[Rfam]
RNA: Small nucleolar RNA SNORA53
Organism: Betta splendens
RNA sequence: AACACGCUCCUUAGAUCCACCUCUGGAGGACUCUGCUGUGAGCAGAGUUCCUCAGCAGCUUUCUGGCUGUACAGUUGGAGGUGCUUGAGUCAUUGGCGUGUGAGAACAGUCUACCUGUCCCCCAGCCCACGUGUAUCACUGGCAUUCGUGUCAUGUAUUGACAAGGGGCUCCCAGUGCUGCUAGGCUUGAGGACGGACACA
Numbered sequence: 001a002a003c004a005c006g007c008u009c010c011u012u013a014g015a016u017c018c019a020c021c022u023c024u025g026g027a028g029g030a031c032u033c034u035g036c037u038g039u040g041a042g043c044a045g046a047g048u049u050c051c052u053c054a055g056c057a058g059c060u061u062u063c064u065g066g067c068u069g070u071a072c073a074g075u076u077g078g079a080g081g082u083g084c085u086u087g088a089g090u091c092a093u094u095g096g097c098g099u100g101u102g103a104g105a106a107c108a109g110u111c112u113a114c115c116u117g118u119c120c121c122c123c124a125g126c127c128c129a130c131g132u133g134u135a136u137c138a139c140u141g142g143c144a145u146u147c148g149u150g151u152c153a154u155g156u157a158u159u160g161a162c163a164a165g166g167g168g169c170u171c172c173c174a175g176u177g178c179u180g181c182u183a184g185g186c187u188u189g190a191g192g193a194c195g196g197a198c199a200c201a
Stems, first nucleotide, its partner, number of pairs: 002101007010089005018083008026053005036045002055070006115196005122189001124187004135179001137177006148169001150162003